[Rfam]
RNA sequence: UGUGCCACAGCUGCACUGAAGGCAUAAUUGUAGCCUUGUAUUUAACAAGACUGUCUCCCUGGAGAACCAUCUUUGAUGUAAGGCUGGAAAUAGCUUGUCUUUAAAUUCCAUCUCUUAAUUUUCUGUGUUGUUGCUCUUUAGAGGAACACCAAGAAACC
Numbered sequence: 001u002g003u004g005c006c007a008c009a010g011c012u013g014c015a016c017u018g019a020a021g022g023c024a025u026a027a028u029u030g031u032a033g034c035c036u037u038g039u040a041u042u043u044a045a046c047a048a049g050a051c052u053g054u055c056u057c058c059c060u061g062g063a064g065a066a067c068c069a070u071c072u073u074u075g076a077u078g079u080a081a082g083g084c085u086g087g088a089a090a091u092a093g094c095u096u097g098u099c100u101u102u103a104a105a106u107u108c109c110a111u112c113u114c115u116u117a118a119u120u121u122u123c124u125g126u127g128u129u130g131u132u133g134c135u136c137u138u139u140a141g142a143g144g145a146a147c148a149c150c151a152a153g154a155a156a157c158c
Stems, first nucleotide, its partner, number of pairs: 006087001010084003015079002017075006032060002095156002098154004106146004
A member of the RNA family "ODC internal ribosome entry site (IRES)" from Vombatus ursinus, 158 nucleotides long. Rfam links the family to the GO term ribosome binding.